[Rfam]
Rfam assigns this 129-nucleotide RNA from Abrus precatorius to the family "Small nucleolar RNA snoR74". It is annotated as an H/ACA-box small nucleolar RNA. The literature on the family includes a 2002 paper in Curr Biol by Marker et al., "Experimental RNomics: identification of 140 candidates for small non-messenger RNAs in the plant Arabidopsis thaliana". The source organism's lineage runs through Eukaryota, Euphyllophyta, Magnoliopsida, Pentapetalae and Abrus.

RNA sequence: AAAAAGGAAGGGGUCUGUUGCCUAUGUGAGCAGUCCUCUCGUAACCUUCAGGGAUAAAGUAACCAUUGUUGUUGGGUGAACCUCUGUUCCCUGUUCAUGACUGAAGGUUCAGUAAAUGAUGGGACAUUU
Numbered sequence: 001a002a003a004a005a006g007g008a009a010g011g012g013g014u015c016u017g018u019u020g021c022c023u024a025u026g027u028g029a030g031c032a033g034u035c036c037u038c039u040c041g042u043a044a045c046c047u048u049c050a051g052g053g054a055u056a057a058a059g060u061a062a063c064c065a066u067u068g069u070u071g072u073u074g075g076g077u078g079a080a081c082c083u084c085u086g087u088u089c090c091c092u093g094u095u096c097a098u099g100a101c102u103g104a105a106g107g108u109u110c111a112g113u114a115a116a117u118g119a120u121g122g123g124a125c126a127u128u129u
Stems, first nucleotide, its partner, number of pairs: 005048003011037002015033003063122008077111007
Dot-bracket structure: ....(((...((..(((.............)))..))........)))..............((((((((......(((((((.....................)))))))...)))))))).......

A search with the family's covariance model found it, with a score of 100 bits. Pairs were carried over by alignment from the consensus structure, which was predicted with WAR.